[Rfam]
T-box leader: a 210-nucleotide RNA sequence from Lysinibacillus odysseyi. The match comes from Rfam's covariance-model search (128 bits). It is annotated as a cis-regulatory leader. The organism belongs to Lysinibacillus odysseyi, within Bacteria.

RNA sequence: GUAAAAGCGAAGAUGAAAAAAUAGUAGUGCUAUAAAAUGCCUAAGAGAGCCGGUGGUUGGUGGGAAACUGGUGCGGAAGAUAGCAUGAAUGGAUUUUCUAGCUGCGAAGAGGAAAUGCUUCGACGUCUGUCCCGCGUUAUGGGAGUAGAGUGGACUAUUUGUUUUUUUGAAUAGUCAAUGAAGGUGGCACCACGGCUCUCCGUCCUUUUU
Numbered sequence: 001g002u003a004a005a006a007g008c009g010a011a012g013a014u015g016a017a018a019a020a021a022u023a024g025u026a027g028u029g030c031u032a033u034a035a036a037a038u039g040c041c042u043a044a045g046a047g048a049g050c051c052g053g054u055g056g057u058u059g060g061u062g063g064g065a066a067a068c069u070g071g072u073g074c075g076g077a078a079g080a081u082a083g084c085a086u087g088a089a090u091g092g093a094u095u096u097u098c099u100a101g102c103u104g105c106g107a108a109g110a111g112g113a114a115a116u117g118c119u120u121c122g123a124c125g126u127c128u129g130u131c132c133c134g135c136g137u138u139a140u141g142g143g144a145g146u147a148g149a150g151u152g153g154a155c156u157a158u159u160u161g162u163u164u165u166u167u168u169g170a171a172u173a174g175u176c177a178a179u180g181a182a183g184g185u186g187g188c189a190c191c192a193c194g195g196c197u198c199u200c201c202g203u204c205c206u207u208u209u210u
Stems, first nucleotide, its partner, number of pairs: 007102002015097004027086006038075003049072006105122005111116001124136003153176009181207004192203004